[Rfam]
The family of this 178-nucleotide sequence from Paraglaciecola psychrophila is "Molybdenum/Tungsten riboswitch aptamer (Moco RNA motif)". Taxonomically the source falls in Paraglaciecola psychrophila (Bacteria, Pseudomonadati, Pseudomonadota, Alteromonadales). The match comes from Rfam's covariance-model search (50 bits).

RNA sequence: AUAUUGGAUUAACCUCGAGCCCUUAAACCUAAACCUUAAUGACAAGGUUUACUGGCCGCGAUACUGAUGUUCUCAUCGGUAUCGUCAGGGUUUUAAGAGAAACCAAUCAGCCUCCCCUAAGUGUCACAUAAUUUCGUGUAGCUACUUCAUUUUGGAAAGAUGUUAGUGAUAUGUGAGA
Numbered sequence: 001a002u003a004u005u006g007g008a009u010u011a012a013c014c015u016c017g018a019g020c021c022c023u024u025a026a027a028c029c030u031a032a033a034c035c036u037u038a039a040u041g042a043c044a045a046g047g048u049u050u051a052c053u054g055g056c057c058g059c060g061a062u063a064c065u066g067a068u069g070u071u072c073u074c075a076u077c078g079g080u081a082u083c084g085u086c087a088g089g090g091u092u093u094u095a096a097g098a099g100a101a102a103c104c105a106a107u108c109a110g111c112c113u114c115c116c117c118u119a120a121g122u123g124u125c126a127c128a129u130a131a132u133u134u135c136g137u138g139u140a141g142c143u144a145c146u147u148c149a150u151u152u153u154g155g156a157a158a159g160a161u162g163u164u165a166g167u168g169a170u171a172u173g174u175g176a177g178a
Base pairs, nucleotide, nucleotide: 003172004171011164012163013162015160016159019056020055021054024051025050026049027048028047029046035041058085059084060083061082062081063080064079065078066077067076068075088113089112090111091110092109097104114155115154